Singlet oxygen resistance RNA X: a 78-nucleotide RNA from Actibacterium naphthalenivorans. It is annotated as a small RNA. Gene Ontology term of the family: response to photooxidative stress. For this family Rfam cites "Regulation of a polyamine transporter by the conserved 3' UTR-derived sRNA SorX confers resistance to singlet oxygen and organic hydroperoxides in Rhodobacter sphaeroides" (Peng et al., RNA Biol, 2016). It scores 54 bits against the family's covariance model.
RNA sequence: AUCCCUUGGCCAGGUCGGGGUAAUGACGUGGCAACCUCCCUGUUGGACUGGCCCGGGCUUUCGCGUCCGGGCCCUUUU
Numbered sequence: 001a002u003c004c005c006u007u008g009g010c011c012a013g014g015u016c017g018g019g020g021u022a023a024u025g026a027c028g029u030g031g032c033a034a035c036c037u038c039c040c041u042g043u044u045g046g047a048c049u050g051g052c053c054c055g056g057g058c059u060u061u062c063g064c065g066u067c068c069g070g071g072c073c074c075u076u077u078u
Stems, first nucleotide, its partner, number of pairs: 010031003014027003051072008